[Rfam]
RNA sequence: CCUAUUUUGGAAUCAAGAUGUUUUGGAAUAGGUCAGGACAGCGCUACCGAUCAAGGAAUUGUAGAGGUAGCCAGUAAGAUCAUAUUGGAUAAAGUAGAAGUCGCGGGUUUAAAUCGUCUCACCUGCGGGAUUUGAAUUUUAUGAUGACAAUAUGCUGCGUAGCUGUACAGGGGGAUAUGAUUUUUUAUAUCUUAUGGCGCAGGGGCAUG
Numbered sequence: 001c002c003u004a005u006u007u008u009g010g011a012a013u014c015a016a017g018a019u020g021u022u023u024u025g026g027a028a029u030a031g032g033u034c035a036g037g038a039c040a041g042c043g044c045u046a047c048c049g050a051u052c053a054a055g056g057a058a059u060u061g062u063a064g065a066g067g068u069a070g071c072c073a074g075u076a077a078g079a080u081c082a083u084a085u086u087g088g089a090u091a092a093a094g095u096a097g098a099a100g101u102c103g104c105g106g107g108u109u110u111a112a113a114u115c116g117u118c119u120c121a122c123c124u125g126c127g128g129g130a131u132u133u134g135a136a137u138u139u140u141a142u143g144a145u146g147a148c149a150a151u152a153u154g155c156u157g158c159g160u161a162g163c164u165g166u167a168c169a170g171g172g173g174g175a176u177a178u179g180a181u182u183u184u185u186u187a188u189a190u191c192u193u194a195u196g197g198c199g200c201a202g203g204g205g206c207a208u209g
Base pairs, nucleotide, nucleotide: 001032002031003030004029005028006027007026043071044070045069046068047067048066060167061166062165081154082153083152084151085150086149087148155202156201157200158199159198160197174191175190176189177188178187

This 209-nucleotide RNA from a Bathymodiolus platifrons methanotrophic gill symbiont belongs to the Rfam family "PAGEV RNA". The family's consensus secondary structure is taken from published work. The source organism's lineage runs through Bacteria, Pseudomonadati, Pseudomonadota and Gammaproteobacteria. By type it is a small RNA.